[Rfam]
Nucleotides: 121
Base pairs, nucleotide, nucleotide: 001081002080003079004078009039012037013036014035015034016033020031021030040067041066042065045063046062047061049059050058084110085109086108087107088106089105093104094103095102096101
Number, partner (000 for none) and nucleotide at each position: 001081g002080a003079u004078c005000c006000a007000g008000a009039a010000g011000c012037u013036c014035g015034a016033c017000g018000a019000a020031u021030g022000c023000c024000u025000c026000c027000c028000g029000g030021c031020a032000c033016g034015u035014c036013g037012a038000c039009u040067g041066g042065c043000a044000a045063c046062c047061g048000c049059g050058c051000g052000a053000u054000u055000c056000g057000c058050g059049c060000a061047c062046g063045g064000u065042g066041c067040c068000c069000c070000c071000g072000g073000g074000a075000g076000a077000a078004g079003a080002u081001c082000g083000g084110c085109c086108g087107g088106u089105g090000a091000c092000u093104u094103g095102c096101a097000a098000a099000c100000c101096u102095g103094c104093g105089c106088a107087c108086c109085g110084g111000a112000a113000g114000u115000g116000c117000g118000a119000a120000u121000u